[Rfam]
RNA sequence: AAUAAGAGAAUGACAAAUCAGAUUUUUCCUCCUGAUUUUUAGCAUGUUUAGUUGGAUUUGAAUUUUUUUUAGGAGGAAAAAGCUAAAAUUUAGGAGGAAAAUUUUGAUUUGUCAUUCUCCUAUU
Numbered sequence: 001a002a003u004a005a006g007a008g009a010a011u012g013a014c015a016a017a018u019c020a021g022a023u024u025u026u027u028c029c030u031c032c033u034g035a036u037u038u039u040u041a042g043c044a045u046g047u048u049u050a051g052u053u054g055g056a057u058u059u060g061a062a063u064u065u066u067u068u069u070u071a072g073g074a075g076g077a078a079a080a081a082g083c084u085a086a087a088a089u090u091u092a093g094g095a096g097g098a099a100a101a102u103u104u105u106g107a108u109u110u111g112u113c114a115u116u117c118u119c120c121u122a123u124u
Base pairs, nucleotide, nucleotide: 001124002123003122004121006119007118008117009116010115011114012113013112014111015110016109017108018107019106020105021104022103024101025100026099027098029096030095031094032093033092034091035090037088038087039086041084042083045080047078048077